[Rfam]
RNA: Small nucleolar RNA SNORD56
Organism: Corythaixoides concolor
RNA sequence: CUGCCAUGAUGGGAAUAUUUUUCGUCAACAGCAUCUCACUGUGUGAAUGGUGACUCCUGUGGGUCUGAGCAG
Number, nucleotide and partner (000 for none) at each position: 001c000002u071003g070004c069005c000006a000007u000008g026009a025010u024011g023012g000013g000014a000015a000016u000017a000018u000019u000020u000021u000022u000023c011024g010025u009026c008027a000028a000029c000030a000031g000032c000033a000034u000035c000036u000037c000038a000039c000040u000041g000042u000043g000044u000045g000046a000047a000048u000049g000050g000051u000052g000053a000054c000055u000056c000057c000058u000059g000060u000061g000062g000063g000064u000065c000066u000067g000068a000069g004070c003071a002072g000